Shown here is a 134-nucleotide RNA sequence from Rahnella aquatilis, a member of the family "tp2". Taxonomically the source falls in Rahnella aquatilis (Bacteria, Pseudomonadati, Gammaproteobacteria, Rahnella). The base pairs follow the family's consensus structure, which was predicted with RNAalifold. A reference for the family is Rivas et al. (2001), "Computational identification of noncoding RNAs in E. coli by comparative genomics", Curr Biol.
RNA sequence: GCUUUUCCUUAUCUGUCUCUAAUACGUUGGUUUAUCUGGAGCCUGUCUUCCUGCGCUCUUUCUAAAACGCGCUUCGCCGCGAUGAGAACGCACGAAGACAGGCCCGUCAUGUAGUUGCCGUGAGCCCUCAAAUG
Numbered sequence: 001g002c003u004u005u006u007c008c009u010u011a012u013c014u015g016u017c018u019c020u021a022a023u024a025c026g027u028u029g030g031u032u033u034a035u036c037u038g039g040a041g042c043c044u045g046u047c048u049u050c051c052u053g054c055g056c057u058c059u060u061u062c063u064a065a066a067a068c069g070c071g072c073u074u075c076g077c078c079g080c081g082a083u084g085a086g087a088a089c090g091c092a093c094g095a096a097g098a099c100a101g102g103c104c105c106g107u108c109a110u111g112u113a114g115u116u117g118c119c120g121u122g123a124g125c126c127c128u129c130a131a132a133u134g
Stems, first nucleotide, its partner, number of pairs: 001119001003117001024110001026108001039105001041103007050094001052092003057087004